[Rfam]
Notes
The family of this 87-nucleotide RNA from Carpinus fangiana is "mir-156 microRNA precursor family". A search with the family's covariance model found it, with a score of 78 bits. On this family, see Reinhart et al., Genes Dev 2002: "MicroRNAs in plants". Gene Ontology terms of the family: miRNA-mediated post-transcriptional gene silencing and RISC complex. The source organism's lineage runs through Eukaryota, Viridiplantae, Streptophytina, rosids and Carpinus. This family represents the plant microRNA (miRNA) precursor mir-156.

RNA sequence: GCGACAGAAGAGAGUGAGCACACAAGGUUUUUCUUGCAUGCUGGCUUUCAUGCUUGAAGCUCUGCGUGCUUACUCUCUAUCAGUCGC
Dot-bracket structure: (((((.((.((((((((((((.((......................................)).))))))))))))..)).)))))